[Rfam]
RNA sequence: GUGGGCGGAAGCUCAUUGUAGAGGUCACAUGCUGAGUGCUCGUCACUCCACCAAUCACCUCGGGGAAGGUCUGAGACAAGAGCCAAUGGUUACCCUCGCAGGGUAUCACCUGAUACGGGUGAGCGAGUGAACAGAAAGAAUGGGUCAAUGUGAGCAGUUCUAGCAGGAGAAGCCUGGUGGCGCAGCCUCUCAGCUCCACCGGUGGAUGUGACUCUCACUGACUUGGAAUCGCUCGCGGCUGGCGGAUGAGUGCGAUGUAUGAGGUGGGGCACAGCUCCAGAACCCAAUUCAGACUACUCUCCCCCCAC
Number, nucleotide and partner (000 for none) at each position: 001g308002u307003g306004g305005g000006c000007g302008g301009a300010a000011g000012c263013u262014c261015a260016u259017u000018g000019u000020a000021g061022a060023g059024g058025u000026c000027a000028c000029a000030u000031g000032c000033u000034g048035a047036g046037u045038g044039c000040u000041c000042g000043u000044c038045a037046c036047u035048c034049c000050a000051c000052c000053a000054a000055u000056c000057a000058c024059c023060u022061c021062g000063g000064g000065g000066a000067a000068g000069g000070u000071c292072u291073g290074a289075g288076a000077c000078a000079a000080g000081a240082g239083c238084c237085a000086a000087u000088g000089g000090u000091u105092a104093c103094c102095c101096u000097c000098g000099c000100a000101g095102g094103g093104u092105a091106u122107c121108a120109c119110c118111u117112g000113a000114u000115a000116c000117g111118g110119g109120u108121g107122a106123g236124c235125g234126a233127g232128u231129g230130a000131a000132c000133a000134g000135a000136a000137a000138g000139a000140a000141u000142g000143g222144g000145u000146c000147a000148a000149u000150g000151u000152g000153a000154g000155c000156a000157g000158u000159u000160c000161u000162a000163g000164c000165a000166g000167g000168a000169g000170a000171a000172g000173c000174c000175u000176g000177g000178u000179g000180g000181c000182g000183c000184a000185g000186c000187c000188u000189c000190u000191c000192a000193g000194c000195u000196c000197c000198a000199c000200c000201g000202g000203u000204g000205g000206a000207u000208g000209u000210g000211a000212c000213u000214c000215u000216c000217a000218c000219u000220g000221a000222c143223u000224u000225g000226g000227a000228a000229u000230c129231g128232c127233u126234c125235g124236c123237g084238g083239c082240u081241g000242g000243c000244g000245g000246a000247u000248g000249a000250g000251u000252g000253c000254g000255a000256u000257g000258u000259a016260u015261g014262a013263g012264g000265u279266g278267g277268g276269g275270c274271a000272c000273a000274g270275c269276u268277c267278c266279a265280g000281a000282a000283c000284c000285c000286a000287a000288u075289u074290c073291a072292g071293a000294c000295u000296a000297c000298u000299c000300u009301c008302c007303c000304c000305c004306c003307a002308c001
This 308-nucleotide RNA sequence from Collichthys lucidus belongs to the Rfam family "Nuclear RNase P". NCBI's taxonomy places the organism under Eukaryota, Chordata, Eurypterygia, Percomorphaceae, Collichthys. A search with the family's covariance model found it, with a score of 219 bits. Its family is annotated with tRNA processing, ribonuclease P activity and ribonuclease P complex in the Gene Ontology. The base pairs follow the family's consensus structure, which is taken from published work. Ribonuclease P (RNase P) is a ubiquitous endoribonuclease, found in archaea, bacteria and eukarya as well as chloroplasts and mitochondria. Its best characterised activity is the generation of mature 5'-ends of tRNAs by cleaving the 5'-leader elements of precursor-tRNAs. Cellular RNase Ps are ribonucleoproteins. RNA from bacterial RNase Ps retains its catalytic activity in the absence of the protein subunit, i.e. it is a ribozyme. The family has 116 seed sequences and 3,848 matches in Rfam 15.1. Its Rfam clan is "RNaseP clan".